[Rfam]
RNA: Small nucleolar RNA SNORD74
Organism: Synaphobranchus kaupii
RNA sequence: UUGCGCAGUUUUGAAUGAUGAAAAAUGUGUUGGUAGGGACAUCUGAGUAAAAUUGAUGAAACGCCAACCUUUCUGACGUCGCAU
Numbered sequence: 001u002u003g004c005g006c007a008g009u010u011u012u013g014a015a016u017g018a019u020g021a022a023a024a025a026u027g028u029g030u031u032g033g034u035a036g037g038g039a040c041a042u043c044u045g046a047g048u049a050a051a052a053u054u055g056a057u058g059a060a061a062c063g064c065c066a067a068c069c070u071u072u073c074u075g076a077c078g079u080c081g082c083a084u
Stems, first nucleotide, its partner, number of pairs: 002083004